Shown here is a 96-nucleotide RNA sequence from Strigamia maritima, a member of the family "mir-130 microRNA precursor family". The match comes from Rfam's covariance-model search (41 bits). Gene Ontology terms of the family: RISC complex and miRNA-mediated post-transcriptional gene silencing.
RNA sequence: UUCAAAUGACACUUCUUCUAACAUUGCUGCACUGUUGGCAACAUUGCUGCACUGCUUGCAACAGUGCAGAAAUGUUAGAAGAAGUGUCAUUUGGAA
Numbered sequence: 001u002u003c004a005a006a007u008g009a010c011a012c013u014u015c016u017u018c019u020a021a022c023a024u025u026g027c028u029g030c031a032c033u034g035u036u037g038g039c040a041a042c043a044u045u046g047c048u049g050c051a052c053u054g055c056u057u058g059c060a061a062c063a064g065u066g067c068a069g070a071a072a073u074g075u076u077a078g079a080a081g082a083a084g085u086g087u088c089a090u091u092u093g094g095a096a
Stems, first nucleotide, its partner, number of pairs: 001096003005091006012084008022074004027069011